[Rfam]
RNA sequence: ACUUAACCGGGUUAGGGAUUGAAAUGAAAAUCCUUUUUGUGAAGUACGAACAAAAAGAUUGUAAUGUAAAGCCCGACCACGC
Numbered sequence: 001a002c003u004u005a006a007c008c009g010g011g012u013u014a015g016g017g018a019u020u021g022a023a024a025u026g027a028a029a030a031u032c033c034u035u036u037u038u039g040u041g042a043a044g045u046a047c048g049a050a051c052a053a054a055a056a057g058a059u060u061g062u063a064a065u066g067u068a069a070a071g072c073c074c075g076a077c078c079a080c081g082c
Base pairs, nucleotide, nucleotide: 015074016073017072019070020069024065025064029060030059031058032057035055036054037053038052039051040050
RNA: Flavo-1 RNA
Organism: Polaribacter atrinae